A member of the RNA family "Group II catalytic intron D1-D4-4" from Parafrankia sp. EAN1pec, 136 nucleotides long. The organism belongs to Parafrankia, within Bacteria. About the family: Group II introns are found in rRNA, tRNA and mRNA of organelles in fungi, plants and protists, and also in mRNA in bacteria. The literature on the family includes a 2001 paper in Trends Genet by Bonen and Vogel, "The ins and outs of group II introns". Rfam 15.1 lists 840 matches to the family in 506 species.
RNA sequence: UUGCCGGUGCGAGUCCGGUCCGGGUAGCUGCCAGGAGGCCCGGUAGCAGACUGGCGGCUUGGUCGGGUAACUGGCCGGGUCGAAGCCCAGUGUCAAAAGCCCAAUAGGGGGAGCGACUGGACGGUCCGUAGCAUGA
Numbered sequence: 001u002u003g004c005c006g007g008u009g010c011g012a013g014u015c016c017g018g019u020c021c022g023g024g025u026a027g028c029u030g031c032c033a034g035g036a037g038g039c040c041c042g043g044u045a046g047c048a049g050a051c052u053g054g055c056g057g058c059u060u061g062g063u064c065g066g067g068u069a070a071c072u073g074g075c076c077g078g079g080u081c082g083a084a085g086c087c088c089a090g091u092g093u094c095a096a097a098a099g100c101c102c103a104a105u106a107g108g109g110g111g112a113g114c115g116a117c118u119g120g121a122c123g124g125u126c127c128g129u130a131g132c133a134u135g136a
Stems, first nucleotide, its partner, number of pairs: 020043005050091005055082011100110003113129003